The record is a 341-nucleotide RNA sequence from Clostridium fallax, which matches "Bacterial RNase P class A" in Rfam. The base pairs follow the family's consensus structure, which is taken from published work. Taxonomically the source falls in Clostridium (Bacteria, Bacillati, Bacillota, Clostridiaceae). The family's RNA type in Rfam is ribozyme. The match comes from Rfam's covariance-model search (316 bits).
RNA sequence: CGAGUAAGCCAGACAAUCGCUGCUGAAUUUAUUCAGGAGAGGAAAGUCCGAGCUCCAUAGGGCAGGGUGCUGGUUAACGGCCAGUGGAGGCGACUCUAAGGAUAGUGCAACAGAAAUAAACCGCCUAUUUAUAGGUAAGGGUGGAACGGUGAGGUAAGAGCUCACCAGCGUAUAGGUGACUAUACGGCUAUGUAAACCCCACUUGGAGCAAGACCGAAUAGAGAGACAUUAUGGGGCUGCCCGUCCCGUCUCUGGGUGUGUCGCUUGAGCCUAUGAGCAAUCAUAGGCCUAGAUAGAUGAUUGUCAAAUACAGAACUCGGCUUAUAGACUUAUCUCGUAUA
Numbered sequence: 001c002g003a004g005u006a007a008g009c010c011a012g013a014c015a016a017u018c019g020c021u022g023c024u025g026a027a028u029u030u031a032u033u034c035a036g037g038a039g040a041g042g043a044a045a046g047u048c049c050g051a052g053c054u055c056c057a058u059a060g061g062g063c064a065g066g067g068u069g070c071u072g073g074u075u076a077a078c079g080g081c082c083a084g085u086g087g088a089g090g091c092g093a094c095u096c097u098a099a100g101g102a103u104a105g106u107g108c109a110a111c112a113g114a115a116a117u118a119a120a121c122c123g124c125c126u127a128u129u130u131a132u133a134g135g136u137a138a139g140g141g142u143g144g145a146a147c148g149g150u151g152a153g154g155u156a157a158g159a160g161c162u163c164a165c166c167a168g169c170g171u172a173u174a175g176g177u178g179a180c181u182a183u184a185c186g187g188c189u190a191u192g193u194a195a196a197c198c199c200c201a202c203u204u205g206g207a208g209c210a211a212g213a214c215c216g217a218a219u220a221g222a223g224a225g226a227c228a229u230u231a232u233g234g235g236g237c238u239g240c241c242c243g244u245c246c247c248g249u250c251u252c253u254g255g256g257u258g259u260g261u262c263g264c265u266u267g268a269g270c271c272u273a274u275g276a277g278c279a280a281u282c283a284u285a286g287g288c289c290u291a292g293a294u295a296g297a298u299g300a301u302u303g304u305c306a307a308a309u310a311c312a313g314a315a316c317u318c319g320g321c322u323u324a325u326a327g328a329c330u331u332a333u334c335u336c337g338u339a340u341a
Stems, first nucleotide, its partner, number of pairs: 001337004005332004010327001011325001012305007020039002023036005044323003048320005053208004060242004065204005070084005085099001086097004100199002105197002107193003121140002123136005148166006168188001169186007212262003222253006233247005269288008